Shown here is an 82-nucleotide sequence from Nothobranchius furzeri, a member of the family "mir-31 microRNA precursor family". Pairs were carried over by alignment from the consensus structure, which was predicted with RNAalifold. Its family is annotated with RISC complex and gene silencing by miRNA in the Gene Ontology.
RNA sequence: GUCCUGAAGGGAGGCAAGAUGAUGGCAAAGCUGCUGAACUCAACAGGUCCGCUUUGCCAUUAACUUGCCAUCCUUCUCUUCC
Number, nucleotide and partner (000 for none) at each position: 001g000002u000003c000004c000005u000006g076007a075008a074009g073010g072011g071012a000013g069014g068015c067016a066017a065018g064019a000020u062021g061022a000023u059024g058025g057026c056027a055028a054029a053030g052031c051032u000033g000034c000035u000036g000037a000038a000039c000040u000041c000042a000043a000044c000045a000046g000047g000048u000049c000050c000051g031052c030053u029054u028055u027056g026057c025058c024059a023060u000061u021062a020063a000064c018065u017066u016067g015068c014069c013070a000071u011072c010073c009074u008075u007076c006077u000078c000079u000080u000081c000082c000